[Rfam]
RNA sequence: AUCACUUAGUGAUCUUGUUAAUAGGCAGAUUCUGGUUCAGGUGGUCUGAGAGUCUGCAAUUCUGACAGGUUUCCAGGUGAUGCUGA
Numbered sequence: 001a002u003c004a005c006u007u008a009g010u011g012a013u014c015u016u017g018u019u020a021a022u023a024g025g026c027a028g029a030u031u032c033u034g035g036u037u038c039a040g041g042u043g044g045u046c047u048g049a050g051a052g053u054c055u056g057c058a059a060u061u062c063u064g065a066c067a068g069g070u071u072u073c074c075a076g077g078u079g080a081u082g083c084u085g086a
Base pairs, nucleotide, nucleotide: 003079004078005077009073011071014069015068016067017066018065019064020063021061025057026056027055028054029053031051032050033049